[Rfam]
RNA sequence: UUAUUACUCACGUAACUUACCUCAUAAAUAUUAAAAAAAAGGCGCAGAAUACUGCGCCUUUUUA
Numbered sequence: 001u002u003a004u005u006a007c008u009c010a011c012g013u014a015a016c017u018u019a020c021c022u023c024a025u026a027a028a029u030a031u032u033a034a035a036a037a038a039a040a041g042g043c044g045c046a047g048a049a050u051a052c053u054g055c056g057c058c059u060u061u062u063u064a
Stems, first nucleotide, its partner, number of pairs: 001006001037062011
Dot-bracket structure: (....)..............................(((((((((((....)))))))))))..

About this RNA:
Shown here is a 64-nucleotide RNA from Legionella beliardensis, a member of the family "Salmonella enterica sRNA STnc40". The organism belongs to Legionella, within Bacteria.